[Rfam]
Nucleotides: 084
Base pairs, nucleotide, nucleotide: 001084002083003082004081005080006079013072015070016069017068018067019066020065021064023062024061026059027058028057029056030055031054032053033052034051035050036049
Number, partner (000 for none) and nucleotide at each position: 001084c002083c003082u004081u005080a006079a007000a008000g009000u010000c011000c012000u013072g014000u015070a016069g017068c018067a019066g020065c021064a022000c023062a024061u025000c026059a027058u028057g029056g030055u031054u032053u033052g034051c035050a036049u037000g038000c039000u040000c041000u042000g043000c044000c045000a046000a047000a048000g049036a050035u051034g052033c053032g054031a055030a056029u057028c058027a059026u060000u061024a062023u063000u064021u065020g066019c067018u068017g069016c070015u071000u072013c073000a074000g075000a076000a077000a078000u079006u080005u081004a082003a083002g084001g